Plant signal recognition particle RNA: a 307-nucleotide sequence from Trema andersonii. The literature on the family includes a 2001 paper in J Mol Biol by Batey et al., "Structural and energetic analysis of RNA recognition by a universally conserved protein from the signal recognition particle". NCBI's taxonomy places the organism under Eukaryota, Viridiplantae, Euphyllophyta, eudicotyledons, Trema. The family's consensus secondary structure is taken from published work. Rfam 15.1 lists 4,988 matches to the family in 266 species. By type it is a non-coding RNA gene.
[Rfam]
RNA sequence: GCCGGGCUCAGCAACGCGGGCCUGUAACCCGAGUGGGGGCACGAAAGUACGGGGACGUUGGAUCAAACUACUUGGGCCGGAUUCGGUGUAGCUCUCCACUGGGCUGCCCAUUCCAAGCCGGGAGUUGAGUUGUGUGGUUCGGGCGAAGGCCCUGGACCACCUCGCUCCUAGAGUGGAGGGUACUGCGUGAGACUGGCUUCACAGAACAGCGAGUACCUCCCGCUCCUGGCAGUGGAAGGAUAACGGGCCGGUGCUACUCGGAUCCAAUAUGGUUUAGUGGGCUGAUCCCAAUGGGACCUGUACUUUU
Dot-bracket structure: (((((((((........))))))....(((....))))))..(((((((((((..(.((((((((..(((((..((((((((((((.((((.(.....((((.(((.((.(((((.(((((((((.((((.(.(((((((((((....))).)))))))).).))))(....).(((((....(.(((....(((......)))....))).)..))))).)))))))))..)))))))....))).)))).))))))))))))).....)))).)))))..))))).)))..)..)))))))))))